[Rfam]
RNA sequence: CCGACUAUUCCGUUAGUUGAGCCAAGUAUCGACUACAUUUAGGUGUGGUAAGCCGAUAUUAAAGUAGCCCUAUUUGAGGUUGAACCGUGAGGGAAUACCGAAACUGCCAGCAACAAGGCGGUUAGGGAG
Numbered sequence: 001c002c003g004a005c006u007a008u009u010c011c012g013u014u015a016g017u018u019g020a021g022c023c024a025a026g027u028a029u030c031g032a033c034u035a036c037a038u039u040u041a042g043g044u045g046u047g048g049u050a051a052g053c054c055g056a057u058a059u060u061a062a063a064g065u066a067g068c069c070c071u072a073u074u075u076g077a078g079g080u081u082g083a084a085c086c087g088u089g090a091g092g093g094a095a096u097a098c099c100g101a102a103a104c105u106g107c108c109a110g111c112a113a114c115a116a117g118g119c120g121g122u123u124a125g126g127g128a129g
Base pairs, nucleotide, nucleotide: 002019003018004017005016006015007014027058028057029056030055031054032049033048034047035046036045037044038043070076078099079098080097085092086091103122104121105120106119107118108117
Dot-bracket structure: .((((((......)))))).......((((((((((((....)))))))....)))))...........(.....).(((....((....))....)))...((((((........)))))).......

The family of this 129-nucleotide RNA from Facklamia sp. 252 is "Group II catalytic intron D1-D4-7". From the family's description: Group II introns are found in rRNA, tRNA and mRNA of organelles in fungi, plants and protists, and also in mRNA in bacteria. Pairs were carried over by alignment from the consensus structure. The match comes from Rfam's covariance-model search (77 bits). Rfam 15.1 lists 1,296 matches to the family in 705 species.